[Rfam]
RNA sequence: AUACGAUACUAGCAAAAUCACUGAAAAGUGAUCCGCGCAAAACUAAAGGGGCCUAAUCGGUUUAAGCCGAAAAGCUAGCCAGUUGCCGAA
Numbered sequence: 001a002u003a004c005g006a007u008a009c010u011a012g013c014a015a016a017a018u019c020a021c022u023g024a025a026a027a028g029u030g031a032u033c034c035g036c037g038c039a040a041a042a043c044u045a046a047a048g049g050g051g052c053c054u055a056a057u058c059g060g061u062u063u064a065a066g067c068c069g070a071a072a073a074g075c076u077a078g079c080c081a082g083u084u085g086c087c088g089a090a
Base pairs, nucleotide, nucleotide: 012038013037017032018031019030020029021028022027041084042083043082044081048080049079050076051075052074057070058069059068060067

The family of this 90-nucleotide sequence from Paenibacillus sp. GP183 is "c-di-GMP-I riboswitch aptamer". Its family is annotated with cyclic-di-GMP binding in the Gene Ontology. It scores 58 bits against the family's covariance model. About the family: GEMM was predicted in a large-scale screen for bacterial structured RNA regulatory elements. Genes associated with GEMM are involved in a diverse array of functions, including chemotaxis regulation, signal transduction, secretion and chitin.